[Rfam]
RNA sequence: AGAGGCUGCAAGUUUGAGGCCACAGCAGAAGCACUCACAGUGCAGCCCGUUGGAUUCCAACAAAUCUGCAAAUUCUGCU
Numbered sequence: 001a002g003a004g005g006c007u008g009c010a011a012g013u014u015u016g017a018g019g020c021c022a023c024a025g026c027a028g029a030a031g032c033a034c035u036c037a038c039a040g041u042g043c044a045g046c047c048c049g050u051u052g053g054a055u056u057c058c059a060a061c062a063a064a065u066c067u068g069c070a071a072a073u074u075c076u077g078c079u
Stems, first nucleotide, its partner, number of pairs: 018047003024079007031043003051068006